[Rfam]
RNA sequence: CGCCUUUGUGUUGCCCGUUCACUUUUGGAAACUAGUGGAUGAGGUGUCAAAAAAGGCGAAAACCAAACACUUGUGCAGCCUUUUCCUGCCUUAGUAUUUGACAUCUUUGGUGUAGGAGCUGCACAAGUAACAGUU
Number, nucleotide and partner (000 for none) at each position: 001c000002g057003c056004c055005u054006u053007u052008g000009u049010g048011u000012u046013g045014c044015c043016c041017g040018u039019u038020c037021a036022c035023u034024u000025u000026u000027g000028g000029a000030a000031a000032c000033u000034a023035g022036u021037g020038g019039a018040u017041g016042a000043g015044g014045u013046g012047u000048c010049a009050a000051a000052a007053a006054a005055g004056g003057c002058g000059a000060a000061a000062a000063c000064c000065a000066a000067a000068c000069a128070c127071u126072u125073g000074u000075g122076c121077a120078g119079c118080c000081u000082u000083u000084u117085c116086c115087u114088g113089c112090c110091u109092u000093a000094g105095u000096a000097u000098u000099u000100g000101a000102c000103a000104u000105c094106u000107u000108u000109g091110g090111u000112g089113u088114a087115g086116g085117a084118g079119c078120u077121g076122c075123a000124c000125a072126a071127g070128u069129a000130a000131c000132a000133g000134u000135u000

Rfam assigns this 135-nucleotide sequence from Eschrichtius robustus to the family "Small nucleolar RNA SNORA13".
It is annotated as an H/ACA-box small nucleolar RNA.
Gene Ontology terms of the family: nucleolus and RNA processing.
Clan: SNORA13 clan.
The match comes from Rfam's covariance-model search (132 bits).
ACA13 is a member of the H/ACA class of snoRNA that guide the sites of modification of uridines to pseudouridines.